[Rfam]
RNA sequence: AGCUCUGGGACAGCCUGGAAGACUUGUGAUUGUGUUGUUUCCAAUGUCAAAGGGAGCAAACAACAAAUCCCAGUCUCCAUCCUGCCCUGAGCA
Numbered sequence: 001a002g003c004u005c006u007g008g009g010a011c012a013g014c015c016u017g018g019a020a021g022a023c024u025u026g027u028g029a030u031u032g033u034g035u036u037g038u039u040u041c042c043a044a045u046g047u048c049a050a051a052g053g054g055a056g057c058a059a060a061c062a063a064c065a066a067a068u069c070c071c072a073g074u075c076u077c078c079a080u081c082c083u084g085c086c087c088u089g090a091g092c093a
Stems, first nucleotide, its partner, number of pairs: 002092004008087002011084003016079003020076005026071001028069004034064006
Rfam assigns this 93-nucleotide RNA sequence from Sapayoa aenigma to the family "mir-7 microRNA precursor family". The base pairs follow the family's consensus structure, which was predicted with PFOLD. Rfam links the family to the GO terms RISC complex and miRNA-mediated post-transcriptional gene silencing. The source organism's lineage runs through Eukaryota, Dinosauria, Neoaves, Telluraves and Sapayoa. From the family's description: This family represents the microRNA (miRNA) precursor mir-7. The literature on the family includes a 2001 paper in Science by Lagos-Quintana et al., "Identification of novel genes coding for small expressed RNAs".